Shown here is a 66-nucleotide RNA from Populus tomentosa, a member of the family "Small nucleolar RNA U49". It is annotated as a C/D-box small nucleolar RNA. Its family is annotated with RNA processing and nucleolus in the Gene Ontology. A search with the family's covariance model found it, with a score of 73 bits.

RNA sequence: UCCCUAUGAGGAAGCAAUCCCAAAAGAUAGGAAGUGCCGUAUGACACUUUAAUCAGCUGCGGUCAC
Numbered sequence: 001u002c003c004c005u006a007u008g009a010g011g012a013a014g015c016a017a018u019c020c021c022a023a024a025a026g027a028u029a030g031g032a033a034g035u036g037c038c039g040u041a042u043g044a045c046a047c048u049u050u051a052a053u054c055a056g057c058u059g060c061g062g063u064c065a066c
Stems, first nucleotide, its partner, number of pairs: 014060002031050006